[Rfam]
RNA sequence: AAUGACAAGUAGGAGCACCCGCUUCUCACCUGAUUGACGCGUUGGAUGCAGUUAACAGGUUUUUAUUCUGGAAUGAGAACAGGAGAUGUGUGGGUGCAGUAUGUGUACCGACACUUUUUUUGAUUC
Numbered sequence: 001a002a003u004g005a006c007a008a009g010u011a012g013g014a015g016c017a018c019c020c021g022c023u024u025c026u027c028a029c030c031u032g033a034u035u036g037a038c039g040c041g042u043u044g045g046a047u048g049c050a051g052u053u054a055a056c057a058g059g060u061u062u063u064u065a066u067u068c069u070g071g072a073a074u075g076a077g078a079a080c081a082g083g084a085g086a087u088g089u090g091u092g093g094g095u096g097c098a099g100u101a102u103g104u105g106u107a108c109c110g111a112c113a114c115u116u117u118u119u120u121u122g123a124u125u126c
Stems, first nucleotide, its partner, number of pairs: 011026006028060003036053003039049002089113003093109006
RNA: Ribosomal protein L20 leader
Organism: Aquibacillus salsiterrae